[Rfam]
RNA sequence: AUUUUCGUUUUCUAGGGUUCCGCAGCUGACUGCUGGCCUGGACCGAGAGAAAACACACAGGCCAGCUGUGACACGGAGGGAUAAAAGCCCGGGAGAU
Numbered sequence: 001a002u003u004u005u006c007g008u009u010u011u012c013u014a015g016g017g018u019u020c021c022g023c024a025g026c027u028g029a030c031u032g033c034u035g036g037c038c039u040g041g042a043c044c045g046a047g048a049g050a051a052a053a054c055a056c057a058c059a060g061g062c063c064a065g066c067u068g069u070g071a072c073a074c075g076g077a078g079g080g081a082u083a084a085a086a087g088c089c090c091g092g093g094a095g096a097u
Base pairs, nucleotide, nucleotide: 007054008053009052010051011050012049015044016043020041021040022038023035024034025033026032056070057069058068059067060066072092074095078090079089080088
Dot-bracket structure: ......((((((..((...(((((((.....))))..).)).))....)))))).(((((.....))))).(.[...(((.......))).)..]..

Record summary: The family of this 97-nucleotide RNA sequence from Paenactinomyces guangxiensis is "Guanidine-I riboswitch aptamer". Rfam describes the family as follows. This family represents a conserved RNA structure found upstream of the ykkC and yxkD genes in Bacillus subtilis and related genes in other bacteria. NCBI's taxonomy places the organism under Bacteria, Bacillota, Bacilli, Thermoactinomycetaceae, Paenactinomyces. On this family, see Battaglia et al., RNA 2017: "Structural basis for guanidine sensing by the ykkC family of riboswitches".